RNA sequence: CGGACUUUCAACAGGCCAUACACCUAAUGUUAUGUAUGGCACUGCUGAAGGUCCGAA
Numbered sequence: 001c002g003g004a005c006u007u008u009c010a011a012c013a014g015g016c017c018a019u020a021c022a023c024c025u026a027a028u029g030u031u032a033u034g035u036a037u038g039g040c041a042c043u044g045c046u047g048a049a050g051g052u053c054c055g056a057a
Base pairs, nucleotide, nucleotide: 001055002054003053004052005051006050007049008048009047010046012044013043014042015040016039017038018037019036021034022033
RNA: mir-2253 microRNA precursor family
Organism: Pristionchus pacificus